[Rfam]
The family of this 109-nucleotide RNA from Lichenifustis flavocetrariae is "EcpR1". By type it is a small RNA. About the family: Perviously named SmelC291, SmrC10, or Sra33. According to its overproduction phenotype it was renamed Elongated Cell Phenotype RNA1. Induced by stress,EcpR1 negatively regulates cell cycle master regulatory genes dnaA and gcrA at post-transcriptional level by base pairing between its strongly conserved GC-rich loop and the target mRNAs. On this family, see Wilms et al., RNA Biol 2012: "Deep sequencing uncovers numerous small RNAs on all four replicons of the plant pathogen Agrobacterium tumefaciens". Its family is annotated with negative regulation of cell cycle, mRNA binding and regulation of translation in response to stress in the Gene Ontology. Taxonomically the source falls in Lichenifustis (Bacteria, Pseudomonadati, Alphaproteobacteria, Hyphomicrobiales). Pairs were carried over by alignment from the consensus structure, which was predicted with WAR.
RNA sequence: AUACCCUACGGAGUGCUCAGGUCCGCCGCAUCUCCUGGGUCCGUGGGGUCGGCCGGUUUGGAAGAGGCGGGAGUGGCCUCCUCAUACGCCUCUUCCAACCGGCCACCAA
Numbered sequence: 001a002u003a004c005c006c007u008a009c010g011g012a013g014u015g016c017u018c019a020g021g022u023c024c025g026c027c028g029c030a031u032c033u034c035c036u037g038g039g040u041c042c043g044u045g046g047g048g049u050c051g052g053c054c055g056g057u058u059u060g061g062a063a064g065a066g067g068c069g070g071g072a073g074u075g076g077c078c079u080c081c082u083c084a085u086a087c088g089c090c091u092c093u094u095c096c097a098a099c100c101g102g103c104c105a106c107c108a109a
Stems, first nucleotide, its partner, number of pairs: 003049008016039006051104008060096002